RNA sequence: AUGCCUUAAACUUAUGAGUAAGGAAAGUAACCAUUCGAGGUGAUACCCCAAACCACACUGCUAAUGUAAGAAGAAUUUCUUAGCGGAUAAAGGUCGUCCCUAAGGUGGCCCACCUACUUUGCGGGAUGUCUGGGAGCUGCAAUCUGCCUG
Numbered sequence: 001a002u003g004c005c006u007u008a009a010a011c012u013u014a015u016g017a018g019u020a021a022g023g024a025a026a027g028u029a030a031c032c033a034u035u036c037g038a039g040g041u042g043a044u045a046c047c048c049c050a051a052a053c054c055a056c057a058c059u060g061c062u063a064a065u066g067u068a069a070g071a072a073g074a075a076u077u078u079c080u081u082a083g084c085g086g087a088u089a090a091a092g093g094u095c096g097u098c099c100c101u102a103a104g105g106u107g108g109c110c111c112a113c114c115u116a117c118u119u120u121g122c123g124g125g126a127u128g129u130c131u132g133g134g135a136g137c138u139g140c141a142a143u144c145u146g147c148c149u150g
Stems, first nucleotide, its partner, number of pairs: 004023005034051002037048001039046001054070001057067002084150003088146001091145004096140002100134002103131005109125003113121001